This 98-nucleotide RNA from Candidatus Vecturithrix granuli belongs to the Rfam family "c-di-GMP-I riboswitch aptamer". The family's consensus secondary structure is taken from published work. Its family is annotated with cyclic-di-GMP binding in the Gene Ontology. The organism belongs to Candidatus Vecturithrix, within Bacteria.
RNA sequence: ACCAGAAAAAACCAAACCCACCGUGAGAUGGGGGCAGAAAGCUACGGGCCUUGAGAUUGACGAUCAGUCAUCAAUUCUAAGACAGCCGGGUUGCCUGG
Numbered sequence: 001a002c003c004a005g006a007a008a009a010a011a012c013c014a015a016a017c018c019c020a021c022c023g024u025g026a027g028a029u030g031g032g033g034g035c036a037g038a039a040a041g042c043u044a045c046g047g048g049c050c051u052u053g054a055g056a057u058u059g060a061c062g063a064u065c066a067g068u069c070a071u072c073a074a075u076u077c078u079a080a081g082a083c084a085g086c087c088g089g090g091u092u093g094c095c096u097g098g
Base pairs, nucleotide, nucleotide: 012037017032018031019030020029022027040092041091042090043089045088046087047086048083050081055077056076058074